The family of this 58-nucleotide RNA is "Plastid-psbA-2 3UTR RNA". The family's consensus secondary structure was predicted with LocARNA. It is annotated as a cis-regulatory element. For this family Rfam cites "Retrograde signaling in plants: A critical review focusing on the GUN pathway and beyond" (Richter et al., Plant Commun, 2023). Plastid psbA-2 is a non-coding RNA (ncRNA) present in plastids. It was identified in inverted repeat sequences in the 3 prime untranslate region (3UTR) of photosystem II quinone-binding protein (psbA). Clan: Plastid-psbA 3UTR RNA clan.
RNA sequence: AAUAUAAGGAGCAAUAACCUCUUUUUUGCUUUAGCAAGGGGGUUAUUGCUCCUUAUAU
Numbered sequence: 001a002a003u004a005u006a007a008g009g010a011g012c013a014a015u016a017a018c019c020u021c022u023u024u025u026u027u028g029c030u031u032u033a034g035c036a037a038g039g040g041g042g043u044u045a046u047u048g049c050u051c052c053u054u055a056u057a058u
Base pairs, nucleotide, nucleotide: 003057004056005055006054007053008052009051010050011049012048013047014046015045016044017043018042020041021040024039025038026037027036028035